[Rfam]
RNA sequence: UACUUACGAGGUGAGAAAGGUUACUCACACGCCGAGUGAACCCCGGCAGAAACCAGCAGACACGCAAUUCGGUAGUUUAAGAGAUGAGGGAAGCUGAGCGCUCAGUGCCGACCCUCCGUAAGUA
Numbered sequence: 001u002a003c004u005u006a007c008g009a010g011g012u013g014a015g016a017a018a019g020g021u022u023a024c025u026c027a028c029a030c031g032c033c034g035a036g037u038g039a040a041c042c043c044c045g046g047c048a049g050a051a052a053c054c055a056g057c058a059g060a061c062a063c064g065c066a067a068u069u070c071g072g073u074a075g076u077u078u079a080a081g082a083g084a085u086g087a088g089g090g091a092a093g094c095u096g097a098g099c100g101c102u103c104a105g106u107g108c109c110g111a112c113c114c115u116c117c118g119u120a121a122g123u124a
Base pairs, nucleotide, nucleotide: 001124002123003122004121005120006119007118008117011028012027013026014025015024030081031047032046033045034044086116087115088114089113090112
RNA: skipping-rope RNA
Organism: Mesobacillus zeae